[Rfam]
RNA sequence: AUAACUAUAAAUUUUGGCAAAAUUUUGACCUUGCUAUUGAAAUGACUAAGACUUCUUAAGGAAUUCGGGCAGAUAUAAACAGCGAUUCGAUAAAAUAUGUCAGUUAAAAUUAAUAAUUGCAUUAUUUCUUAACAAAAAGACAUCCUAGCUUUACCAUCUUGUGAAACAAUCCAUUAAUUGUAAUAUUACGUUGAGCGCCUUGUUCAUCAAUGCUAUAAUUAGUUACAUAAUAAAUUGAACAUCUAAAUACACCAAAUCCCCUCACUAUUGCCCUAGUGAGGGGAUUU
Numbered sequence: 001a002u003a004a005c006u007a008u009a010a011a012u013u014u015u016g017g018c019a020a021a022a023u024u025u026u027g028a029c030c031u032u033g034c035u036a037u038u039g040a041a042a043u044g045a046c047u048a049a050g051a052c053u054u055c056u057u058a059a060g061g062a063a064u065u066c067g068g069g070c071a072g073a074u075a076u077a078a079a080c081a082g083c084g085a086u087u088c089g090a091u092a093a094a095a096u097a098u099g100u101c102a103g104u105u106a107a108a109a110u111u112a113a114u115a116a117u118u119g120c121a122u123u124a125u126u127u128c129u130u131a132a133c134a135a136a137a138a139g140a141c142a143u144c145c146u147a148g149c150u151u152u153a154c155c156a157u158c159u160u161g162u163g164a165a166a167c168a169a170u171c172c173a174u175u176a177a178u179u180g181u182a183a184u185a186u187u188a189c190g191u192u193g194a195g196c197g198c199c200u201u202g203u204u205c206a207u208c209a210a211u212g213c214u215a216u217a218a219u220u221a222g223u224u225a226c227a228u229a230a231u232a233a234a235u236u237g238a239a240c241a242u243c244u245a246a247a248u249a250c251a252c253c254a255a256a257u258c259c260c261c262u263c264a265c266u267a268u269u270g271c272c273c274u275a276g277u278g279a280g281g282g283g284a285u286u287u
Base pairs, nucleotide, nucleotide: 002225003224004223005222006221007220016030017029018027019026020025033213034212036211037210038209039208040207043206044205045204047202048201049200050199052197060128061127062126063125064124069120070119071118072101073100074099075098076097077096081091083089084088103114104113105112106111148196149195150194151193156191157190159188161186162185163184166181167180168179169178170177254287255286256285257284258283259282260281261280262279263278264277265276266275267274
RNA: RNA Staph. aureus A
Organism: Staphylococcus aureus